Description
The family of this 585-nucleotide part of an RNA from Succiniclasticum ruminis is "Bacterial small subunit ribosomal RNA". A search with the family's covariance model found it, with a score of 1594 bits. The base pairs follow the family's consensus structure, which is taken from published work.
RNA sequence: UGACGGGGGCCCGCACAAGCGGUGGAGUAUGUGGUUUAAUUCGACGCAACGCGAAGAACCUUACCAGGGCUUGACAUCGAUUGCAAGGCGUAGAGAUACGCCCCUCUCUUCGGAGACAUGAAGACAGGUGGUGCAUGGCUGUCGUCAGCUCGUGUCGUGAGAUGUUGGGUUAAGUCCCGCAACGAGCGCAACCCCUAUCCCAUGUUACCAUCAUUAAGUUGGGGACUCAUGGGAGACUGCCAGGGACAACCUGGAGGAAGGCGGGGAUGACGUCAAGUCAUCAUGCCCCUUAUGUCCUGGGCUACACACGUACUACAAUGGCCGGCAACAGAGGGAAGCGAAGCCGCGAGGCGGAGCGAACCCCAUAAACCCGGUCCCAGUUCGGAUCGCAGGCUGCAACCCGCCUGCGUGAAGUCGGAAUCGCUAGUAAUCGCAGGUCAGCAUACUGCGGUGAAUACGUUCCCGGGCCUUGUACACACCGCCCGUCACACCACGAAAGUUGGUAACACCCGAAGCCGGUGGGGUAACCGCAAGGAGCCAGCCGUCUAAGGUGGGGCCGAUGAUUGGGGUGAAGUCGUAACAAGG
Number, nucleotide and partner (000 for none) at each position: 001u476002g475003a473004c472005g471006g000007g470008g469009g468010c467011c466012c465013g464014c000015a460016c459017a000018a000019g424020c423021g422022g421023u420024g316025g000026a314027g313028u312029a311030u310031g309032u308033g307034g305035u304036u000037u000038a000039a000040u055041u054042c053043g052044a000045c000046g000047c000048a000049a000050c000051g000052c043053g042054a041055a040056g000057a000058a000059c000060c000061u000062u000063a000064c300065c299066a298067g297068g296069g295070c294071u000072u000073g000074a000075c000076a000077u124078c123079g000080a000081u000082u118083g117084c000085a000086a000087g102088g101089c100090g099091u098092a097093g000094a000095g000096a000097u092098a091099c090100g089101c088102c087103c000104c000105u116106c115107u114108c113109u000110u000111c000112g000113g108114a107115g106116a105117c083118a082119u000120g000121a000122a000123g078124a077125c000126a000127g289128g288129u000130g287131g286132u285133g284134c000135a000136u283137g282138g278139c277140u276141g274142u000143c272144g271145u000146c000147a000148g187149c186150u185151c184152g183153u182154g163155u162156c161157g000158u000159g000160a000161g156162a155163u154164g000165u000166u179167g178168g177169g176170u000171u000172a000173a000174g000175u000176c169177c168178c167179g166180c000181a000182a153183c152184g151185a150186g149187c148188g000189c000190a000191a000192c000193c266194c265195c264196u263197a000198u234199c233200c232201c231202a230203u229204g228205u000206u000207a000208c223209c222210a000211u000212c221213a220214u000215u000216a000217a000218g000219u000220u213221g212222g209223g208224g000225a000226c000227u000228c204229a203230u202231g201232g200233g199234a198235g000236a000237c257238u256239g000240c254241c253242a252243g251244g250245g000246a000247c000248a000249a000250c244251c243252u242253g241254g240255a000256g238257g237258a000259a000260g000261g000262c000263g196264g195265g194266g193267a000268u000269g000270a000271c144272g143273u000274c141275a000276a140277g139278u138279c000280a000281u000282c137283a136284u133285g132286c131287c130288c128289c127290u000291u000292a000293u000294g070295u069296c068297c067298u066299g065300g064301g000302c000303u000304a035305c034306a000307c033308a032309c031310g030311u029312a028313c027314u026315a000316c024317a000318a000319u000320g376321g375322c374323c373324g372325g371326c000327a000328a000329c000330a000331g000332a000333g364334g363335g362336a000337a000338g357339c356340g000341a000342a000343g352344c351345c350346g000347c000348g000349a000350g345351g344352c343353g000354g000355a000356g339357c338358g000359a000360a000361c000362c335363c334364c333365a000366u000367a000368a000369a000370c000371c325372c324373g323374g322375u321376c320377c000378c000379a000380g000381u000382u000383c414384g000385g000386a000387u000388c409389g408390c407391a406392g405393g404394c403395u000396g000397c000398a000399a000400c000401c000402c000403g394404c393405c392406u391407g390408c389409g388410u000411g000412a000413a000414g383415u000416c000417g000418g000419a000420a023421u022422c021423g020424c019425u000426a000427g000428u000429a000430a452431u451432c450433g449434c448435a447436g446437g000438u000439c000440a000441g000442c000443a000444u000445a000446c436447u435448g434449c433450g432451g431452u430453g000454a000455a000456u000457a000458c000459g016460u015461u000462c000463c000464c013465g012466g011467g010468c009469c008470u007471u005472g004473u003474a000475c002476a001477c000478a000479c584480c000481g581482c000483c000484c577485g576486u000487c000488a000489c571490a570491c569492c568493a000494c566495g565496a564497a000498a000499g561500u560501u559502g558503g557504u556505a000506a000507c553508a552509c551510c550511c000512g000513a000514a000515g546516c000517c544518g543519g542520u541521g000522g000523g539524g538525u537526a000527a000528c535529c534530g000531c000532a000533a000534g529535g528536a000537g525538c524539c523540a000541g520542c519543c518544g517545u000546c515547u000548a000549a000550g510551g509552u508553g507554g000555g000556g504557c503558c502559g501560a500561u499562g000563a000564u496565u495566g494567g000568g492569g491570u490571g489572a000573a000574g000575u000576c485577g484578u000579a000580a000581c481582a000583a000584g479585g000